[Rfam]
RNA sequence: GGCCCGAAUUUGGGGUAAAGCAGAUUAGAAGGAUCAUCUGACCCUACUAAACUACUCUACUUCGAGUUUGUGCCC
Numbered sequence: 001g002g003c004c005c006g007a008a009u010u011u012g013g014g015g016u017a018a019a020g021c022a023g024a025u026u027a028g029a030a031g032g033a034u035c036a037u038c039u040g041a042c043c044c045u046a047c048u049a050a051a052c053u054a055c056u057c058u059a060c061u062u063c064g065a066g067u068u069u070g071u072g073c074c075c
Base pairs, nucleotide, nucleotide: 001074002073003072005070006069007068008067009066011064012063013062014061015060016059017058019056020055022053023052025050026049027048028047030045032043034041035040

Description
Shown here is a 75-nucleotide RNA sequence from Haemonchus placei, a member of the family "mir-5928 microRNA precursor family".